RNA sequence: UGGUCGAACUAGUUGCUAUUAAUUAAAGUUAAUAGAGGAAACUCCACGCUCGCACAAUCUGCGAAGAUUGUAGUGUUUGUGCUAACCGAAACCAUAAGGUUAGGCAUAGGUGAACCUAUGACGGCUGGUAGCUAGCGCUAAGUUAAUGUGUUAAUAUGCGCCGUACCUAUAAAAGUGCCACAGUGACGAUGUUCUAAAGAAAUUUAGAAAGUGGAACGGGUAAACCCCACAAGCGAGAAACCUAAAUUUUGGUAAGGGAAUCUGUUCUUUUUAAAAAGGAAGAAAGAACGGAAUUUAAAUAGAAAUUAUUUAAAUAGAUAAAUAACUAGUGAUUUAUAGCAAUAUAAAUAACAGAACGUGGGUUAUGAGA
Numbered sequence: 001u002g003g004u005c006g007a008a009c010u011a012g013u014u015g016c017u018a019u020u021a022a023u024u025a026a027a028g029u030u031a032a033u034a035g036a037g038g039a040a041a042c043u044c045c046a047c048g049c050u051c052g053c054a055c056a057a058u059c060u061g062c063g064a065a066g067a068u069u070g071u072a073g074u075g076u077u078u079g080u081g082c083u084a085a086c087c088g089a090a091a092c093c094a095u096a097a098g099g100u101u102a103g104g105c106a107u108a109g110g111u112g113a114a115c116c117u118a119u120g121a122c123g124g125c126u127g128g129u130a131g132c133u134a135g136c137g138c139u140a141a142g143u144u145a146a147u148g149u150g151u152u153a154a155u156a157u158g159c160g161c162c163g164u165a166c167c168u169a170u171a172a173a174a175g176u177g178c179c180a181c182a183g184u185g186a187c188g189a190u191g192u193u194c195u196a197a198a199g200a201a202a203u204u205u206a207g208a209a210a211g212u213g214g215a216a217c218g219g220g221u222a223a224a225c226c227c228c229a230c231a232a233g234c235g236a237g238a239a240a241c242c243u244a245a246a247u248u249u250u251g252g253u254a255a256g257g258g259a260a261u262c263u264g265u266u267c268u269u270u271u272u273a274a275a276a277a278g279g280a281a282g283a284a285a286g287a288a289c290g291g292a293a294u295u296u297a298a299a300u301a302g303a304a305a306u307u308a309u310u311u312a313a314a315u316a317g318a319u320a321a322a323u324a325a326c327u328a329g330u331g332a333u334u335u336a337u338a339g340c341a342a343u344a345u346a347a348a349u350a351a352c353a354g355a356a357c358g359u360g361g362g363u364u365a366u367g368a369g370a
Stems, first nucleotide, its partner, number of pairs: 004370002007366001008330007016035006040364003044361005049237005054071006077232005082103006104122001105120006123227002126169003135161004142155005175225002177221003192209007241257003261292007293315009332349007
Background
Rfam assigns this 370-nucleotide RNA sequence from Spiroplasma eriocheiris to the family "Bacterial RNase P class B". The source organism's lineage runs through Bacteria, Mycoplasmatota, Mollicutes, Spiroplasmataceae and Spiroplasma. The family is grouped with related families in Rfam's "RNaseP clan". From the family's description: Ribonuclease P (RNase P) is a ubiquitous endoribonuclease, found in archaea, bacteria and eukarya as well as chloroplasts and mitochondria. A search with the family's covariance model found it, with a score of 275 bits.